This 104-nucleotide RNA from Panicum virgatum belongs to the Rfam family "Small nucleolar RNA Z194". On this family, see Chen et al., Nucleic Acids Res 2003: "The high diversity of snoRNAs in plants: identification and comparative study of 120 snoRNA genes from Oryza sativa". The family's consensus secondary structure was predicted with PFOLD. The family has 5 seed sequences and 65 matches in Rfam 15.1.
RNA sequence: GGCAGAUUGGUGAUGAAACACAAACCCCAAGCUUUUAUUCCACUGAUUCCAGUGAUGGGAAGCUAUGUUAGCAUAGCUUUUGUGGUUUUCAAUCCGAAACAUCU
Numbered sequence: 001g002g003c004a005g006a007u008u009g010g011u012g013a014u015g016a017a018a019c020a021c022a023a024a025c026c027c028c029a030a031g032c033u034u035u036u037a038u039u040c041c042a043c044u045g046a047u048u049c050c051a052g053u054g055a056u057g058g059g060a061a062g063c064u065a066u067g068u069u070a071g072c073a074u075a076g077c078u079u080u081u082g083u084g085g086u087u088u089u090c091a092a093u094c095c096g097a098a099a100c101a102u103c104u
Stems, first nucleotide, its partner, number of pairs: 004104004030044002058081010